Shown here is a 124-nucleotide sequence from Chara braunii, a member of the family "U5 spliceosomal RNA". NCBI's taxonomy places the organism under Eukaryota, Viridiplantae, Streptophytina, Charophyceae, Chara. Its family is annotated with U5 snRNP and spliceosomal tri-snRNP complex assembly in the Gene Ontology. A reference for the family is Zwieb (1997), "The uRNA database", Nucleic Acids Res. The family's consensus secondary structure is taken from published work. U5 RNA is a component of both types of known spliceosome. The precise function of this molecule is unknown, though it is known that the 5' loop is required for splice site selection and p220 binding, and that both the 3' stem-loop and the Sm site are important for Sm protein binding and cap methylation.
[Rfam]
RNA sequence: UUCUGCGAGUCCACACCCAGCUCAGUGGGCGUACUAUUCUUUCGCCUUUUACUAAAGAAUACCGUGGGCUGAGCACACGUAAGCAGCUUACGUGAAAUAUUCACAGGCCUACCAGACUAGUCUG
Numbered sequence: 001u002u003c004u005g006c007g008a009g010u011c012c013a014c015a016c017c018c019a020g021c022u023c024a025g026u027g028g029g030c031g032u033a034c035u036a037u038u039c040u041u042u043c044g045c046c047u048u049u050u051a052c053u054a055a056a057g058a059a060u061a062c063c064g065u066g067g068g069c070u071g072a073g074c075a076c077a078c079g080u081a082a083g084c085a086g087c088u089u090a091c092g093u094g095a096a097a098u099a100u101u102c103a104c105a106g107g108c109c110u111a112c113c114a115g116a117c118u119a120g121u122c123u124g
Base pairs, nucleotide, nucleotide: 003086004085005084006083009076010075012073014071015070016068017067018066019065035061036060037059038058039057040056041055042054104124106123107122109120110119111118